Nucleotides: 059
Base pairs, nucleotide, nucleotide: 010025011024012023013022016050017049018048019047020046021045032040033039
Number, partner (000 for none) and nucleotide at each position: 001000a002000a003000u004000u005000a006000a007000g008000a009000a010025g011024g012023u013022g014000a015000u016050g017049g018048a019047g020046u021045u022013c023012a024011c025010c026000u027000g028000a029000a030000u031000c032040a033039c034000u035000u036000u037000u038000a039033g040032u041000u042000a043000a044000u045021g046020a047019c048018u049017c050016c051000u052000g053000u054000a055000g056000a057000a058000u059000u